[Rfam]
RNA: MIR162_1 microRNA precursor family
Organism: Brassica napus
RNA sequence: GUAAAAGAUGCUGGAGGCAGCGGUUGAUCGAUCUCUUUGUGGGAAUUUUUGAAAAACAAAAUUAAAAGCAUGAACAGAUCGAUAAACCUCUGCAUCCAGCGGUCGCCUC
Numbered sequence: 001g002u003a004a005a006a007g008a009u010g011c012u013g014g015a016g017g018c019a020g021c022g023g024u025u026g027a028u029c030g031a032u033c034u035c036u037u038u039g040u041g042g043g044a045a046u047u048u049u050u051g052a053a054a055a056a057c058a059a060a061a062u063u064a065a066a067a068g069c070a071u072g073a074a075c076a077g078a079u080c081g082a083u084a085a086a087c088c089u090c091u092g093c094a095u096c097c098a099g100c101g102g103u104c105g106c107c108u109c
Stems, first nucleotide, its partner, number of pairs: 013097003018092003022088004027083007036074003